[Rfam]
RNA: Glycine riboswitch aptamer
Organism: Saccharothrix sp. ALI-22-I
RNA sequence: CAACUCUGGAAAGCAGGCGUGUUCGCGGCGCCUCGCCCACGGUGCAAGCCGCCCUCAUCCGGCGGCGAAGCUCUCAGGCUCAUGAACAGAGGGGGA
Numbered sequence: 001c002a003a004c005u006c007u008g009g010a011a012a013g014c015a016g017g018c019g020u021g022u023u024c025g026c027g028g029c030g031c032c033u034c035g036c037c038c039a040c041g042g043u044g045c046a047a048g049c050c051g052c053c054c055u056c057a058u059c060c061g062g063c064g065g066c067g068a069a070g071c072u073c074u075c076a077g078g079c080u081c082a083u084g085a086a087c088a089g090a091g092g093g094g095g096a
Stems, first nucleotide, its partner, number of pairs: 001094001004091005015033004035079003039074001042073001044071001048066006